A member of the RNA family "Purine riboswitch aptamer" from Halobacillus salinus, 102 nucleotides long. A search with the family's covariance model found it, with a score of 77 bits. The organism belongs to Halobacillus, within Bacteria. The family's consensus secondary structure is taken from published work.
[Rfam]
RNA sequence: UACUAAUUAUCUUUUCUCACUCGUAUAUAUUCGGAAAUAAGGUCCGGAUGUCUCUACAAGACCACCGUAAACGGUCUGACUACGAGGGCCGAGUAUUAUCGC
Numbered sequence: 001u002a003c004u005a006a007u008u009a010u011c012u013u014u015u016c017u018c019a020c021u022c023g024u025a026u027a028u029a030u031u032c033g034g035a036a037a038u039a040a041g042g043u044c045c046g047g048a049u050g051u052c053u054c055u056a057c058a059a060g061a062c063c064a065c066c067g068u069a070a071a072c073g074g075u076c077u078g079a080c081u082a083c084g085a086g087g088g089c090c091g092a093g094u095a096u097u098a099u100c101g102c
Base pairs, nucleotide, nucleotide: 018088020086021085022084023083024082025081029049030048031047032046033045034044035043059077060076061075062074063073